RNA sequence: AUCACACAAAGGCACACCCGAGCGAAAGCCGGGGUCGCAAAGCUUCCAGUCUAAAGUAGCUCGCGGACCGCGAGCCGCCAAGAUCGUGGGGCCGCUGUC
Numbered sequence: 001a002u003c004a005c006a007c008a009a010a011g012g013c014a015c016a017c018c019c020g021a022g023c024g025a026a027a028g029c030c031g032g033g034g035u036c037g038c039a040a041a042g043c044u045u046c047c048a049g050u051c052u053a054a055a056g057u058a059g060c061u062c063g064c065g066g067a068c069c070g071c072g073a074g075c076c077g078c079c080a081a082g083a084u085c086g087u088g089g090g091g092c093c094g095c096u097g098u099c
Stems, first nucleotide, its partner, number of pairs: 012038002017033004022029002042092003046089003049084003056078002059075007

Rfam assigns this 99-nucleotide RNA sequence from Hylemonella gracilis to the family "c-di-GMP-I riboswitch aptamer". Taxonomically the source falls in Hylemonella gracilis (Bacteria, Pseudomonadota, Burkholderiales, Comamonadaceae).